[Rfam]
RNA sequence: ACACGCUGAAAGGAGGUGAUCCGAGAACAUGGUUUCUUUUCGGAUUCGUGAGGUGACUGCGGGCUAACGGCCUGCCGUCGCACUCUGUGCACCUCGGCAGUUCGUCUGCCGAAAACCACGCAGUCACCCGACCCGUGGGCCGCCGGUAGAUCCGGCCGGCUCCCGUCCGAACUCGAGCGGACGGGACCAGGCCCACGGGUCGUCUGCG
Numbered sequence: 001a002c003a004c005g006c007u008g009a010a011a012g013g014a015g016g017u018g019a020u021c022c023g024a025g026a027a028c029a030u031g032g033u034u035u036c037u038u039u040u041c042g043g044a045u046u047c048g049u050g051a052g053g054u055g056a057c058u059g060c061g062g063g064c065u066a067a068c069g070g071c072c073u074g075c076c077g078u079c080g081c082a083c084u085c086u087g088u089g090c091a092c093c094u095c096g097g098c099a100g101u102u103c104g105u106c107u108g109c110c111g112a113a114a115a116c117c118a119c120g121c122a123g124u125c126a127c128c129c130g131a132c133c134c135g136u137g138g139g140c141c142g143c144c145g146g147u148a149g150a151u152c153c154g155g156c157c158g159g160c161u162c163c164c165g166u167c168c169g170a171a172c173u174c175g176a177g178c179g180g181a182c183g184g185g186a187c188c189a190g191g192c193c194c195a196c197g198g199g200u201c202g203u204c205u206g207c208g
Stems, first nucleotide, its partner, number of pairs: 016060003020056001062110003067105002070103001073100001074098003129202013142160006